[Rfam]
RNA sequence: GCAGGUGUAGUUUAAUGGCAGAACUUCAGCCUUCCAAGCUGAUUGUGAGGGUUCGAUUCCCUUCACCUGCU
Numbered sequence: 001g002c003a004g005g006u007g008u009a010g011u012u013u014a015a016u017g018g019c020a021g022a023a024c025u026u027c028a029g030c031c032u033u034c035c036a037a038g039c040u041g042a043u044u045g046u047g048a049g050g051g052u053u054c055g056a057u058u059c060c061c062u063u064c065a066c067c068u069g070c071u
Stems, first nucleotide, its partner, number of pairs: 001070007010024004026042005047063005
Dot-bracket structure: (((((((..((((.......)))).(((((.......)))))....(((((.......)))))))))))).